Annotation: The record is a 126-nucleotide RNA, which matches "LOOT RNA" in Rfam.
Nucleotides: 126
Stems, first nucleotide, its partner, number of pairs: 001037004009030009043087011054073001056071004089108008109126006
Number, partner (000 for none) and nucleotide at each position: 001037a002036g003035c004034c005000u006000a007000a008000c009030c010029u011028u012027u013026a014025u015024a016023g017022g018000u019000u020000u021000u022017c023016c024015u025014a026013u027012g028011a029010a030009g031000u032000a033000u034004g035003g036002c037001u038000a039000a040000a041000a042000a043087c044086c045085c046084a047083u048082c049081c050080c051079u052078g053077a054073c055000a056071u057070u058069g059068a060000a061000c062000u063000c064000c065000u066000c067000g068059u069058c070057a071056g072000a073054g074000c075000a076000c077053u078052c079051a080050g081049g082048g083047a084046u085045g086044g087043g088000u089108c090107u091106a092105u093104a094103g095102c096101c097000g098000a099000a100000a101096g102095g103094u104093u105092a106091u107090a108089g109126g110125a111124u112123a113122g114121u115000c116000g117000a118000a119000a120000g121114g122113c123112u124111g125110u126109c